A member of the RNA family "Archaeal large subunit ribosomal RNA" from Methanobacterium paludis, 578 nucleotides of a longer RNA. It is one of the family's seed sequences. The family's consensus secondary structure is taken from published work. The organism belongs to Methanobacterium, within Archaea.

[Rfam]
RNA sequence: CUUCCAUUGGGAAGCGAAGACCCCGUAGAGCUUUACUGCAGUCUGUCGUUGAAGCUUGGUCAUGGGUAUGCAGUGUAGGUGGGAGGCUUCGAUGCCACGUCGCUAGGCGUGGUUGAGCCGUUGUUGAGACACCACCUUCUUGUGACUGUGUUUCUAACUUGUAAAAGAACACCGGUAGAUGGGCAGUUUGGCUGGGGCGGCACGGGCUUGAAAAGAUAUCAAGCCCGCCCUAAGGUCGGCUCAGGUGGGACAGAGAUCCACCGUAGAGUGUAAGGGCAAAAGCCGGCCUGACUGGAUUCCCCAUAGUACGGAAUCCAGAGGCGAAAGCCGGGCCUAACGAACACCAUAAUCCUCCUCGGUGGGGGUAUGGUAUGACAGAAAAGCUACCUCGGGGAUAACUGGGUGGUCGCAGGCAAGAGCCCAUAUCGACCCUGCGGCUUGCUACUUCGAUGUCGGUUCUUUCCAUCCUGGGUGUGCAGCAGCACCCAAGGGUGGGGUUGUUCGCCCAUUAAAGGGGAACGUGAGCUGGGUUUAGACCGUCGUGAGACAGGUUGGUUGCUAUCUAAUGGAAGUGUAUG
Numbered sequence: 001c002u003u004c005c006a007u008u009g010g011g012a013a014g015c016g017a018a019g020a021c022c023c024c025g026u027a028g029a030g031c032u033u034u035a036c037u038g039c040a041g042u043c044u045g046u047c048g049u050u051g052a053a054g055c056u057u058g059g060u061c062a063u064g065g066g067u068a069u070g071c072a073g074u075g076u077a078g079g080u081g082g083g084a085g086g087c088u089u090c091g092a093u094g095c096c097a098c099g100u101c102g103c104u105a106g107g108c109g110u111g112g113u114u115g116a117g118c119c120g121u122u123g124u125u126g127a128g129a130c131a132c133c134a135c136c137u138u139c140u141u142g143u144g145a146c147u148g149u150g151u152u153u154c155u156a157a158c159u160u161g162u163a164a165a166a167g168a169a170c171a172c173c174g175g176u177a178g179a180u181g182g183g184c185a186g187u188u189u190g191g192c193u194g195g196g197g198c199g200g201c202a203c204g205g206g207c208u209u210g211a212a213a214a215g216a217u218a219u220c221a222a223g224c225c226c227g228c229c230c231u232a233a234g235g236u237c238g239g240c241u242c243a244g245g246u247g248g249g250a251c252a253g254a255g256a257u258c259c260a261c262c263g264u265a266g267a268g269u270g271u272a273a274g275g276g277c278a279a280a281a282g283c284c285g286g287c288c289u290g291a292c293u294g295g296a297u298u299c300c301c302c303a304u305a306g307u308a309c310g311g312a313a314u315c316c317a318g319a320g321g322c323g324a325a326a327g328c329c330g331g332g333c334c335u336a337a338c339g340a341a342c343a344c345c346a347u348a349a350u351c352c353u354c355c356u357c358g359g360u361g362g363g364g365g366u367a368u369g370g371u372a373u374g375a376c377a378g379a380a381a382a383g384c385u386a387c388c389u390c391g392g393g394g395a396u397a398a399c400u401g402g403g404u405g406g407u408c409g410c411a412g413g414c415a416a417g418a419g420c421c422c423a424u425a426u427c428g429a430c431c432c433u434g435c436g437g438c439u440u441g442c443u444a445c446u447u448c449g450a451u452g453u454c455g456g457u458u459c460u461u462u463c464c465a466u467c468c469u470g471g472g473u474g475u476g477c478a479g480c481a482g483c484a485c486c487c488a489a490g491g492g493u494g495g496g497g498u499u500g501u502u503c504g505c506c507c508a509u510u511a512a513a514g515g516g517g518a519a520c521g522u523g524a525g526c527u528g529g530g531u532u533u534a535g536a537c538c539g540u541c542g543u544g545a546g547a548c549a550g551g552u553u554g555g556u557u558g559c560u561a562u563c564u565a566a567u568g569g570a571a572g573u574g575u576a577u578g
Base pairs, nucleotide, nucleotide: 001572002571003570004569005568006567007566008565010564011563012562014559015558022393023392024391025390027389028388029385030384031383032382033381035187036186037185038184042179043178044177045176046175047174048173051154052153053152054151055150057148058147059146060145061144062143063142064141065140066139068137078136079135080134081133082132085119086118087117097110098109099108100107101106158167159166160165190203191201192200193199204226205225206224207223208222209221229332230331235287236286237285238284239283240282241267242266244262245261246260247259248258249257268277269276292318293317294316295315296314297313298312299311300310320329322327343371344370345369346368347367349366351365352364353363354362402443403442404441406440407437408436409435410434411433412432413431417427418426454529455527456526457525458524459521460518461517462516463515464514467492468491471486472485473484474483475482495507496506497505498504535553536552537551538550539548540547541546